[Rfam]
This 113-nucleotide RNA from Phocoena sinus belongs to the Rfam family "U5 spliceosomal RNA". The family's consensus secondary structure is taken from published work. Rfam's curators write: U5 RNA is a component of both types of known spliceosome. NCBI's taxonomy places the organism under Eukaryota, Bilateria, Teleostomi, Artiodactyla, Phocoena. It scores 48 bits against the family's covariance model. The family has 180 seed sequences and 28,527 matches in Rfam 15.1.
RNA sequence: ACACUCUGGUUUCUUUUCAGCUCAUAUAAAUCUUUCGCCUUUUACUAAAGAUUUCUGUGGGGGGGGGGGCGGAAAAUGCAAAUAUAUCCUGUGACUACAUCCCAACAAAUGUG
Numbered sequence: 001a002c003a004c005u006c007u008g009g010u011u012u013c014u015u016u017u018c019a020g021c022u023c024a025u026a027u028a029a030a031u032c033u034u035u036c037g038c039c040u041u042u043u044a045c046u047a048a049a050g051a052u053u054u055c056u057g058u059g060g061g062g063g064g065g066g067g068g069g070c071g072g073a074a075a076a077u078g079c080a081a082a083u084a085u086a087u088c089c090u091g092u093g094a095c096u097a098c099a100u101c102c103c104a105a106c107a108a109a110u111g112u113g
Base pairs, nucleotide, nucleotide: 005076010067011066012065013064014063015062016061017060018059019058028054029053030052031051032050033049034048035047096113097112098111099110100109